Background:
T-box leader: a 274-nucleotide sequence from Paenibacillus oceani. By type it is a cis-regulatory leader. A search with the family's covariance model found it, with a score of 116 bits.
[Rfam]
RNA sequence: CAUACGGCUAUGAAGAGAACAGUAAUUUGGAUUCAUUAUUUACAGAGAGCUCCUGUCUGGUGGAAAGGAGUAAUAAGGAUCUAAAUGAAAAAAGACUCGGAGCUUCGCAUGGAUCUAAGAUUGUUUUCUUAGUGAUGCUGCGACGGGAUCUCCCGUUAUAGAGAUAGGGUAUAAUCAAUUUUUUUUAUAAAAUUGCCGUACCCGAAGAGGUUGAUAUGGCAACAUAUCGAUAAACUGAGGUGGUACCACGAAGUGAAUAACUCUCGUCCUCAAG
Numbered sequence: 001c002a003u004a005c006g007g008c009u010a011u012g013a014a015g016a017g018a019a020c021a022g023u024a025a026u027u028u029g030g031a032u033u034c035a036u037u038a039u040u041u042a043c044a045g046a047g048a049g050c051u052c053c054u055g056u057c058u059g060g061u062g063g064a065a066a067g068g069a070g071u072a073a074u075a076a077g078g079a080u081c082u083a084a085a086u087g088a089a090a091a092a093a094g095a096c097u098c099g100g101a102g103c104u105u106c107g108c109a110u111g112g113a114u115c116u117a118a119g120a121u122u123g124u125u126u127u128c129u130u131a132g133u134g135a136u137g138c139u140g141c142g143a144c145g146g147g148a149u150c151u152c153c154c155g156u157u158a159u160a161g162a163g164a165u166a167g168g169g170u171a172u173a174a175u176c177a178a179u180u181u182u183u184u185u186u187a188u189a190a191a192a193u194u195g196c197c198g199u200a201c202c203c204g205a206a207g208a209g210g211u212u213g214a215u216a217u218g219g220c221a222a223c224a225u226a227u228c229g230a231u232a233a234a235c236u237g238a239g240g241u242g243g244u245a246c247c248a249c250g251a252a253g254u255g256a257a258u259a260a261c262u263c264u265c266g267u268c269c270u271c272a273a274g
Base pairs, nucleotide, nucleotide: 007103008102015098016097017096025086026085027084028083029082030081038074039073040072049071050070051069052068053067054066106142107141108137109136110135144155145154146153210231211230212229213228214227215226216225237271238270239269240268248267249266250265251264
Dot-bracket structure: ......((......(((.......((((((.......(((........((((((...........)))))))))......)))))).........)))...))..(((((........................)))...)).(((......)))......................................................(((((((........))))))).....((((.......((((............))))))))...
Rfam 15.1 lists 19,395 matches to the family in 1,923 species.